mir-30 microRNA precursor family: a 74-nucleotide RNA from Sparus aurata. For this family Rfam cites "Identification of novel genes coding for small expressed RNAs" (Lagos-Quintana et al., Science, 2001). Rfam describes the family as follows. This family consists of the mammalian microRNA (miRNA) precursor mir-30a. It scores 61 bits against the family's covariance model.
[Rfam]
RNA sequence: UUUGGGGCUGUAAACAUCCCCGACUGGAAGCUGUCUAUCCACAGAGCUUUCAGUCUGAUGUUUACCGCCACCGA
Dot-bracket structure: .(.(.(.(.(((((((((....((((((((((............))))))))))..))))))))).).).).).
Numbered sequence: 001u002u003u004g005g006g007g008c009u010g011u012a013a014a015c016a017u018c019c020c021c022g023a024c025u026g027g028a029a030g031c032u033g034u035c036u037a038u039c040c041a042c043a044g045a046g047c048u049u050u051c052a053g054u055c056u057g058a059u060g061u062u063u064a065c066c067g068c069c070a071c072c073g074a
Stems, first nucleotide, its partner, number of pairs: 002073001004071001006069001008067001010065009023054010